The family of this 86-nucleotide sequence from Pelotomaculum propionicicum is "c-di-GMP-I riboswitch aptamer". Taxonomically the source falls in Pelotomaculum (Bacteria, Bacillati, Clostridia, Eubacteriales).
RNA sequence: CGUGAAUAAAGGCAAACUCACCGAAAGGUGGGGACGCAAAGCCUACAGGCCUAAAGCUGUAAAGCAACGGUGGCUGGGUUGCCGGA
Number, nucleotide and partner (000 for none) at each position: 001c000002g000003u000004g000005a000006a000007u000008a000009a000010a000011g000012g037013c036014a000015a000016a000017c032018u031019c030020a029021c028022c027023g000024a000025a000026a000027g022028g021029u020030g019031g018032g017033g000034a000035c000036g013037c012038a000039a000040a080041g079042c078043c077044u000045a000046c076047a075048g074049g071050c070051c069052u000053a000054a000055a000056g065057c064058u063059g000060u000061a000062a000063a058064g057065c056066a000067a000068c000069g051070g050071u049072g000073g000074c048075u047076g046077g043078g042079u041080u040081g000082c000083c000084g000085g000086a000